[Rfam]
This 165-nucleotide RNA from Desulfosporosinus orientis belongs to the Rfam family "glmS glucosamine-6-phosphate activated ribozyme aptamer". The match comes from Rfam's covariance-model search (100 bits).
RNA sequence: GCAAUAAUCGAAGCGCCAGGACCUUAUUAUCAUAAGUAUGAUUGAGGUCGACGAGGAAGAGGGUUAUCGAAACAUUCGGCGGAUCCCUCUCGGUGGCUUGUCGCCGUAAAGCUUGCUUAAAACCAGAGAGUAAUUUUUGGGACAAAGGUAAAGCUGACAAGACAA
Numbered sequence: 001g002c003a004a005u006a007a008u009c010g011a012a013g014c015g016c017c018a019g020g021a022c023c024u025u026a027u028u029a030u031c032a033u034a035a036g037u038a039u040g041a042u043u044g045a046g047g048u049c050g051a052c053g054a055g056g057a058a059g060a061g062g063g064u065u066a067u068c069g070a071a072a073c074a075u076u077c078g079g080c081g082g083a084u085c086c087c088u089c090u091c092g093g094u095g096g097c098u099u100g101u102c103g104c105c106g107u108a109a110a111g112c113u114u115g116c117u118u119a120a121a122a123c124c125a126g127a128g129a130g131u132a133a134u135u136u137u138u139g140g141g142a143c144a145a146a147g148g149u150a151a152a153g154c155u156g157a158c159a160a161g162a163c164a165a
Base pairs, nucleotide, nucleotide: 020049021048022047023046024045025044026043058090059089060088061087062086067079068078069077070076091106092105093104094103095102110155111154112153113152114151123140124139125138126137127136128135129134
The family's RNA type in Rfam is riboswitch.